This 83-nucleotide RNA from Nodosilinea sp. LEGE 07088 belongs to the Rfam family "Glutamine riboswitch aptamer (glnA leader)". For this family Rfam cites "Bacterial aptamers that selectively bind glutamine" (Ames and Breaker, RNA Biol, 2011). Gene Ontology term of the family: glutamine binding. A search with the family's covariance model found it, with a score of 44 bits. The organism belongs to Nodosilinea, within Bacteria.
RNA sequence: GACGUUCAUCUACUGCGAACCCAGGGUAAUUGCCCUGAAGCUUUAGACGGAAGUAAGGAGACCCACUCCUGAAGGAACGCACC
Numbered sequence: 001g002a003c004g005u006u007c008a009u010c011u012a013c014u015g016c017g018a019a020c021c022c023a024g025g026g027u028a029a030u031u032g033c034c035c036u037g038a039a040g041c042u043u044u045a046g047a048c049g050g051a052a053g054u055a056a057g058g059a060g061a062c063c064c065a066c067u068c069c070u071g072a073a074g075g076a077a078c079g080c081a082c083c
Stems, first nucleotide, its partner, number of pairs: 003079005009047004050080001056070005